[Rfam]
The record is a 32-nucleotide RNA sequence, which matches "DUF805b RNA" in Rfam.

RNA sequence: AAGGCGGAACCGAAAAGCCUUACGAGUAGGAA
Number, nucleotide and partner (000 for none) at each position: 001a000002a020003g019004g018005c017006g000007g000008a000009a000010c030011c029012g000013a000014a000015a000016a000017g005018c004019c003020u002021u000022a000023c000024g000025a000026g000027u000028a000029g011030g010031a000032a000

Its Rfam clan is "DUF805 clan".